[Rfam]
RNA sequence: UUAUAAGCAACUUUUCACUUUUUAGGUUCAUUGAAUAAAUGAUGCAUGUUGUAUAUAUCAUAGACCGCAUACAUCAUUUAUUCAAUGAACCUAAAAAGUGAAAAGUUGCCUAUAA
Numbered sequence: 001u002u003a004u005a006a007g008c009a010a011c012u013u014u015u016c017a018c019u020u021u022u023u024a025g026g027u028u029c030a031u032u033g034a035a036u037a038a039a040u041g042a043u044g045c046a047u048g049u050u051g052u053a054u055a056u057a058u059c060a061u062a063g064a065c066c067g068c069a070u071a072c073a074u075c076a077u078u079u080a081u082u083c084a085a086u087g088a089a090c091c092u093a094a095a096a097a098g099u100g101a102a103a104a105g106u107u108g109c110c111u112a113u114a115a
Stems, first nucleotide, its partner, number of pairs: 002114004007109001009107005015101011027089018049067001051065002
The family of this 115-nucleotide RNA sequence from Medicago truncatula is "MIR2593 microRNA precursor family".
The family's consensus secondary structure was predicted with RNAalifold.
The family has 7 seed sequences and 1,262 matches in Rfam 15.1.
The match comes from Rfam's covariance-model search (103 bits).